[Rfam]
RNA sequence: AGAGAAGCAAAGUGAUGAGUAAUACUGGCUGGAGCCCCAAAGAGGCACAUGUGUGUAUGUUUGUGUGUAUGUAUAUGCUUGUCAGUGCAUGCGUGUGUAUGUCUGAGAGUACAAAUGUGUGCGACUGGUUGUAGGGAACUAGCUAUGUGCCUUCUAUUAGGCCAUGACAGUCAAACUGAUAAGAUCUGAUUGCUUC
Numbered sequence: 001a002g003a004g005a006a007g008c009a010a011a012g013u014g015a016u017g018a019g020u021a022a023u024a025c026u027g028g029c030u031g032g033a034g035c036c037c038c039a040a041a042g043a044g045g046c047a048c049a050u051g052u053g054u055g056u057a058u059g060u061u062u063g064u065g066u067g068u069a070u071g072u073a074u075a076u077g078c079u080u081g082u083c084a085g086u087g088c089a090u091g092c093g094u095g096u097g098u099a100u101g102u103c104u105g106a107g108a109g110u111a112c113a114a115a116u117g118u119g120u121g122c123g124a125c126u127g128g129u130u131g132u133a134g135g136g137a138a139c140u141a142g143c144u145a146u147g148u149g150c151c152u153u154c155u156a157u158u159a160g161g162c163c164a165u166g167a168c169a170g171u172c173a174a175a176c177u178g179a180u181a182a183g184a185u186c187u188g189a190u191u192g193c194u195u196c
Base pairs, nucleotide, nucleotide: 004196005195006194007193008192009191010190014186015185016184026173027172028171029170030169031168036107038105039104041102043100045098046097047096048095049094050093051092052091053090054089055088056087060084065078066077067076068075069074109122110121111120112119125142126141127140128139129138130137144166145165146164147163149162150161151160152159

The record is a 196-nucleotide sequence from Macaca fascicularis, which matches "Small nucleolar RNA ZL1" in Rfam.
Rfam's curators write: Host gene TRRAP. Predicted target U2@U47. Only GU-rich region is homologous to other known snoRNAs. Conserved in vertebrates.
By type it is a C/D-box small nucleolar RNA.
The organism belongs to Macaca, within Eukaryota.